[Rfam]
RNA: SAM-I/IV (S-adenosyl methionine) riboswitch aptamer
RNA sequence: AAAAGGCAUCCAGAGUUAAGCGACGCGCUUAACGCCAACCUGCCCUUCCCGGCAAGGUGGCGUCCGGAAACGGAGAUGCGGCCGAACCGGCAAUUAACGGGACCAAG
Numbered sequence: 001a002a003a004a005g006g007c008a009u010c011c012a013g014a015g016u017u018a019a020g021c022g023a024c025g026c027g028c029u030u031a032a033c034g035c036c037a038a039c040c041u042g043c044c045c046u047u048c049c050c051g052g053c054a055a056g057g058u059g060g061c062g063u064c065c066g067g068a069a070a071c072g073g074a075g076a077u078g079c080g081g082c083c084g085a086a087c088c089g090g091c092a093a094u095u096a097a098c099g100g101g102a103c104c105a106a107g
Base pairs, nucleotide, nucleotide: 006079007078008077009076010075015033016032017031018030019029020028021027022026034061035060036059039057040056041055042053043052044051047102048101049100050099081091082090083089084088